[Rfam]
RNA sequence: AUCCCCCGUGGCCGGGGUUACGGCCACACCUCCCUGUUGGACUGGCCCGGGUUUGCGCCCGGGCCUUUUU
Numbered sequence: 001a002u003c004c005c006c007c008g009u010g011g012c013c014g015g016g017g018u019u020a021c022g023g024c025c026a027c028a029c030c031u032c033c034c035u036g037u038u039g040g041a042c043u044g045g046c047c048c049g050g051g052u053u054u055g056c057g058c059c060c061g062g063g064c065c066u067u068u069u070u
Stems, first nucleotide, its partner, number of pairs: 008027006045064008
Shown here is a 70-nucleotide RNA from Vannielia litorea, a member of the family "Singlet oxygen resistance RNA X". Lineage of the source: Bacteria > Pseudomonadati > Pseudomonadota > Rhodobacterales > Vannielia. Pairs were carried over by alignment from the consensus structure. Rfam classes the family as a small RNA. The family has 8 seed sequences and 528 matches in Rfam 15.1. Rfam describes the family as follows. SorX (RSs2461)like SorY is a singlet oxygen induced sRNA that counteracts oxidative stress by targeting mRNA for a transporter in Rhodobacter. It also has an impact on resistance against organic hydroperoxides. It targets SD sequence of potA mRNA via an aSD sequence. For this family Rfam cites "Regulation of a polyamine transporter by the conserved 3' UTR-derived sRNA SorX confers resistance to singlet oxygen and organic hydroperoxides in Rhodobacter sphaeroides" (Peng et al., RNA Biol, 2016).